RNA sequence: UCACUUCACAUUCAGGCGGGAGCCCCUAUAUGGGCUCCUGCCGGCCUUGGUCGGCUAUGAGGAUAAAUUGCCCCGUGCAAUAGACGCAGCGGACCCGGGGGCGGUACCCGGCGGCUCCACCAUCACCCGUCUCCGAAUGGAGGCAACCCUGUUGUCGCAGGGGUGAUGACGGGGCCGAACUAGGAUCGACGUGUGUUGAAAAGCGGUGUUUUCUUCCGGGCUGAGUAACCCGUUCAAGGCUCAAAACUCAUAAGUGCCAACGACAACGAAGCACUUGCUCUCGCGGCGUAAUUCUAGGGGCUAACGCCCUGAAGUUACAAAGUUAGAACACGGUUGGACCCACCGGGUAACAGAAGCGGAUUCC
Numbered sequence: 001u002c003a004c005u006u007c008a009c010a011u012u013c014a015g016g017c018g019g020g021a022g023c024c025c026c027u028a029u030a031u032g033g034g035c036u037c038c039u040g041c042c043g044g045c046c047u048u049g050g051u052c053g054g055c056u057a058u059g060a061g062g063a064u065a066a067a068u069u070g071c072c073c074c075g076u077g078c079a080a081u082a083g084a085c086g087c088a089g090c091g092g093a094c095c096c097g098g099g100g101g102c103g104g105u106a107c108c109c110g111g112c113g114g115c116u117c118c119a120c121c122a123u124c125a126c127c128c129g130u131c132u133c134c135g136a137a138u139g140g141a142g143g144c145a146a147c148c149c150u151g152u153u154g155u156c157g158c159a160g161g162g163g164u165g166a167u168g169a170c171g172g173g174g175c176c177g178a179a180c181u182a183g184g185a186u187c188g189a190c191g192u193g194u195g196u197u198g199a200a201a202a203g204c205g206g207u208g209u210u211u212u213c214u215u216c217c218g219g220g221c222u223g224a225g226u227a228a229c230c231c232g233u234u235c236a237a238g239g240c241u242c243a244a245a246a247c248u249c250a251u252a253a254g255u256g257c258c259a260a261c262g263a264c265a266a267c268g269a270a271g272c273a274c275u276u277g278c279u280c281u282c283g284c285g286g287c288g289u290a291a292u293u294c295u296a297g298g299g300g301c302u303a304a305c306g307c308c309c310u311g312a313a314g315u316u317a318c319a320a321a322g323u324u325a326g327a328a329c330a331c332g333g334u335u336g337g338a339c340c341c342a343c344c345g346g347g348u349a350a351c352a353g354a355a356g357c358g359g360a361u362u363c364c
Stems, first nucleotide, its partner, number of pairs: 040055005059216005070209002073206004085195003089192003095111005112177007217232004222243003331345004336362002339359002
Description:
This 364-nucleotide RNA from Novosphingobium guangzhouense belongs to the Rfam family "Alphaproteobacteria transfer-messenger RNA". It is annotated as a non-coding RNA gene. The match comes from Rfam's covariance-model search (212 bits). The organism belongs to Novosphingobium, within Bacteria. The literature on the family includes a 2002 paper in Nucleic Acids Res by Laslett et al., "BRUCE: a program for the detection of transfer-messenger RNA genes in nucleotide sequences".